The record is a 75-nucleotide RNA sequence from Actinoplanes teichomyceticus, which matches "c-di-GMP-I riboswitch aptamer" in Rfam. A search with the family's covariance model found it, with a score of 45 bits. From the family's description: GEMM was predicted in a large-scale screen for bacterial structured RNA regulatory elements.
RNA sequence: CGGCGAGAACGGCAAACCCGGCACGAGCCGGGGACGCGAAGCCGCAGGACCCACGGGGUCGGCUGGGCUACCACC
Numbered sequence: 001c002g003g004c005g006a007g008a009a010c011g012g013c014a015a016a017c018c019c020g021g022c023a024c025g026a027g028c029c030g031g032g033g034a035c036g037c038g039a040a041g042c043c044g045c046a047g048g049a050c051c052c053a054c055g056g057g058g059u060c061g062g063c064u065g066g067g068c069u070a071c072c073a074c075c
Stems, first nucleotide, its partner, number of pairs: 012037002017032006040069004045065003048060005